[Rfam]
RNA sequence: UGUUCUGUAAUGACGACUGUAUGAAAAACCCGUCUUGGAUUCGUACAGUCUGAUGUGAACA
Numbered sequence: 001u002g003u004u005c006u007g008u009a010a011u012g013a014c015g016a017c018u019g020u021a022u023g024a025a026a027a028a029c030c031c032g033u034c035u036u037g038g039a040u041u042c043g044u045a046c047a048g049u050c051u052g053a054u055g056u057g058a059a060c061a
Stems, first nucleotide, its partner, number of pairs: 001061005015050010030038003
Dot-bracket structure: (((((.........((((((((((.....(((...)))..))))))))))......)))))

Selenocysteine insertion sequence 1: a 61-nucleotide sequence from Opisthorchis felineus. The base pairs follow the family's consensus structure, which is taken from published work. The family's RNA type in Rfam is cis-regulatory element. Rfam 15.1 lists 3,793 matches to the family in 721 species.